The family of this 201-nucleotide RNA sequence from Babesia bigemina is "ACEA small nucleolar RNA U3". Lineage of the source: Eukaryota > Sar > Apicomplexa > Aconoidasida > Babesia. The match comes from Rfam's covariance-model search (110 bits). Its Rfam clan is "U3 clan". About the family: Small nucleolar RNAs (snoRNAs) are involved in the processing and modification of rRNA in the nucleolus. There are two main classes of snoRNAs: the box C/D class, and the box H/ACA class. Gene Ontology terms of the family: RNA processing and nucleolus. The family has 28 seed sequences and 2,156 matches in Rfam 15.1.
[Rfam]
RNA sequence: UCGACUGUGCUCGUACAGGAUCACUUCUAUAGUGAAUCUGGUUAUCGAUGCCAUCAGCGACAGUUGCUGUCAACAGCCGUGAUGAUGAGAUGUACGUUCUGCCGUCUGCGGAAUUAAGUUAUCAAAUGUUCACAUUUGCUUGACGUCGAUGAAGUAGUUAACCUAUACGGUGACUGCGGUAUUGAACGAAUCUGAACGGCG
Numbered sequence: 001u002c003g004a005c006u007g008u009g010c011u012c013g014u015a016c017a018g019g020a021u022c023a024c025u026u027c028u029a030u031a032g033u034g035a036a037u038c039u040g041g042u043u044a045u046c047g048a049u050g051c052c053a054u055c056a057g058c059g060a061c062a063g064u065u066g067c068u069g070u071c072a073a074c075a076g077c078c079g080u081g082a083u084g085a086u087g088a089g090a091u092g093u094a095c096g097u098u099c100u101g102c103c104g105u106c107u108g109c110g111g112a113a114u115u116a117a118g119u120u121a122u123c124a125a126a127u128g129u130u131c132a133c134a135u136u137u138g139c140u141u142g143a144c145g146u147c148g149a150u151g152a153a154g155u156a157g158u159u160a161a162c163c164u165a166u167a168c169g170g171u172g173a174c175u176g177c178g179g180u181a182u183u184g185a186a187c188g189a190a191u192c193u194g195a196a197c198g199g200c201g
Base pairs, nucleotide, nucleotide: 001041002040003039006035008034009033010032011031017028018027019026020025047071048070049069050068052066053065055063076200077199078198079197080196095188096187097186098185099184100181101180102179103178104177107156108155109154118144119143120142121141157174158173159172160171162169